[Rfam]
RNA sequence: AUUUUAUUGAAUCAGAUAGGCUUUAGAGCCUUGAUAUUAAGCACUUUGGUGCGCUUUCCUUUAGUGCUUUUUGAUUUCU
Numbered sequence: 001a002u003u004u005u006a007u008u009g010a011a012u013c014a015g016a017u018a019g020g021c022u023u024u025a026g027a028g029c030c031u032u033g034a035u036a037u038u039a040a041g042c043a044c045u046u047u048g049g050u051g052c053g054c055u056u057u058c059c060u061u062u063a064g065u066g067c068u069u070u071u072u073g074a075u076u077u078c079u
Stems, first nucleotide, its partner, number of pairs: 018079003031074001034071001039069007048060002051057001
Notes
A member of the RNA family "Streptococcus sRNA SpF01" from Streptococcus mitis, 79 nucleotides long. The family's RNA type in Rfam is small RNA. Lineage of the source: Bacteria > Bacillota > Bacilli > Streptococcus > Streptococcus mitis. For this family Rfam cites "Control of virulence by small RNAs in Streptococcus pneumoniae" (Mann et al., PLoS Pathog, 2012). It is one of the family's seed sequences.